[Rfam]
RNA: FMN riboswitch aptamer (RFN element)
RNA sequence: CCGUAUCCUCAGGGCGGGGUGAAAGUCCCCACCGGCGGUAUUCCCGCGCGGCCAUGCCGCGCCGGAGAGCCCGCGAGCGCCUGCUCCGUCGUGGAGCGGGGUCAGCAGACCCGGUGAGAUGCCGGGGCCGACGGUAACAGUCCGGAUGAAAGAGGAAGCGG
Numbered sequence: 001c002c003g004u005a006u007c008c009u010c011a012g013g014g015c016g017g018g019g020u021g022a023a024a025g026u027c028c029c030c031a032c033c034g035g036c037g038g039u040a041u042u043c044c045c046g047c048g049c050g051g052c053c054a055u056g057c058c059g060c061g062c063c064g065g066a067g068a069g070c071c072c073g074c075g076a077g078c079g080c081c082u083g084c085u086c087c088g089u090c091g092u093g094g095a096g097c098g099g100g101g102u103c104a105g106c107a108g109a110c111c112c113g114g115u116g117a118g119a120u121g122c123c124g125g126g127g128c129c130g131a132c133g134g135u136a137a138c139a140g141u142c143c144g145g146a147u148g149a150a151a152g153a154g155g156a157a158g159c160g161g
Stems, first nucleotide, its partner, number of pairs: 003159002006156005017029003031141002033130002035074004069128002077106002110126005132144003